[Rfam]
RNA: TPP riboswitch aptamer (THI element)
Organism: Luteimonas marina
RNA sequence: CGCCCGAAGCGGGGGUACCGCGCCACGGCGCGGUUGAGACAGACCCUUCGAACCUGAUCCGGGUGAUGCCGGCGUAGGGAAGCUUCGCAGGACGCGCC
Numbered sequence: 001c002g003c004c005c006g007a008a009g010c011g012g013g014g015g016u017a018c019c020g021c022g023c024c025a026c027g028g029c030g031c032g033g034u035u036g037a038g039a040c041a042g043a044c045c046c047u048u049c050g051a052a053c054c055u056g057a058u059c060c061g062g063g064u065g066a067u068g069c070c071g072g073c074g075u076a077g078g079g080a081a082g083c084u085u086c087g088c089a090g091g092a093c094g095c096g097c098c
Base pairs, nucleotide, nucleotide: 006086007085008084009083010082011047012046013045014044016041017034018033019032020031021030053078054077055076056075059072060071061070062069